tRNA: a 73-nucleotide RNA from Rubritepida sp. A search with the family's covariance model found it, with a score of 69 bits. Its family is annotated with triplet codon-amino acid adaptor activity in the Gene Ontology. The source organism's lineage runs through Bacteria, Pseudomonadota, Acetobacterales, Roseomonadaceae and Rubritepida. By type it is a transfer RNA. Rfam describes the family as follows. Transfer RNA (tRNA) molecules are approximately 80 nucleotides in length. Pairs were carried over by alignment from the consensus structure, which is taken from published work.
[Rfam]
RNA sequence: GGGGCCAUAGCUCAGUUGGUAGAGCGCUUGAAUGGCAUUCAAGAGGUCGACGGUUCGAUUCCGUUUGGCUCCA
Numbered sequence: 001g002g003g004g005c006c007a008u009a010g011c012u013c014a015g016u017u018g019g020u021a022g023a024g025c026g027c028u029u030g031a032a033u034g035g036c037a038u039u040c041a042a043g044a045g046g047u048c049g050a051c052g053g054u055u056c057g058a059u060u061c062c063g064u065u066u067g068g069c070u071c072c073a
Base pairs, nucleotide, nucleotide: 001072002071003070004069005068006067007066010025011024012023013022027043028042029041030040031039049065050064051063052062053061